[Rfam]
RNA sequence: CGCUCAUCCAGAGGGACAGAGGGAACGGCCCGUUGAAGUCCCGGCAACCAUUCCGCCGACCGCGAGGUAACGGUGGGGACGGUGCCAAUUCCGUCUCACGGCGAAAUGCGUCGUGGGGAAGAUGAGGA
Dot-bracket structure: ..((((((....(((((...(((.[[[[)))......)))))((((.((.((((((((............))))))))..))))))...(]]]](((((((((.....)))))))))..)))))))..
RNA: SAM riboswitch aptamer (S box leader)